The family of this 96-nucleotide RNA sequence from Alteromonadales bacterium alter-6D02 is "c-di-GMP-I riboswitch aptamer". Rfam describes the family as follows. GEMM was predicted in a large-scale screen for bacterial structured RNA regulatory elements.
[Rfam]
RNA sequence: UGUAGAAUUUGGCAAACUGACUGAAAAGUCAGGACGCAAAGCUUCCAGUCUAAAAGUUAACAAUAUUGUUUAACUCAUGAUCGUGGGGUUGCCUUA
Numbered sequence: 001u002g003u004a005g006a007a008u009u010u011g012g013c014a015a016a017c018u019g020a021c022u023g024a025a026a027a028g029u030c031a032g033g034a035c036g037c038a039a040a041g042c043u044u045c046c047a048g049u050c051u052a053a054a055a056g057u058u059a060a061c062a063a064u065a066u067u068g069u070u071u072a073a074c075u076c077a078u079g080a081u082c083g084u085g086g087g088g089u090u091g092c093c094u095u096a
Stems, first nucleotide, its partner, number of pairs: 012037002017032006040090004045086003048081003055075006